[Rfam]
RNA sequence: UAGCUGAUGAAGUGAUGAGUUUCUCAUGUCUCUUCUCUGACUUGCACUUGGAGAGAAUAAUUAUUUUCUCUGAUCACAGCUU
Number, nucleotide and partner (000 for none) at each position: 001u000002a081003g080004c079005u078006g000007a000008u000009g000010a000011a000012g000013u000014g000015a000016u000017g000018a000019g000020u000021u000022u000023c000024u000025c000026a000027u000028g000029u000030c000031u000032c000033u000034u000035c000036u000037c000038u000039g000040a000041c000042u000043u000044g000045c000046a000047c000048u000049u000050g000051g000052a000053g000054a000055g000056a000057a000058u000059a000060a000061u000062u000063a000064u000065u000066u000067u000068c000069u000070c000071u000072g000073a000074u000075c000076a000077c000078a005079g004080c003081u002082u000